[Rfam]
RNA: Glycine riboswitch aptamer
Organism: Streptococcus henryi
RNA sequence: UGACGGACUUCUGGAGAGACCUAGAUAGACACAUUUCUAUCAUUUAAGGCGCCGAAGGGGCAAGGUAGCAUCAGCUGCCCAAUCUCUCAGGCAAAAGGACAGAAGAUAAGUU
Numbered sequence: 001u002g003a004c005g006g007a008c009u010u011c012u013g014g015a016g017a018g019a020c021c022u023a024g025a026u027a028g029a030c031a032c033a034u035u036u037c038u039a040u041c042a043u044u045u046a047a048g049g050c051g052c053c054g055a056a057g058g059g060g061c062a063a064g065g066u067a068g069c070a071u072c073a074g075c076u077g078c079c080c081a082a083u084c085u086c087u088c089a090g091g092c093a094a095a096a097g098g099a100c101a102g103a104a105g106a107u108a109a110g111u112u
Stems, first nucleotide, its partner, number of pairs: 006107001008105006020049003051092003054088002058086003064079006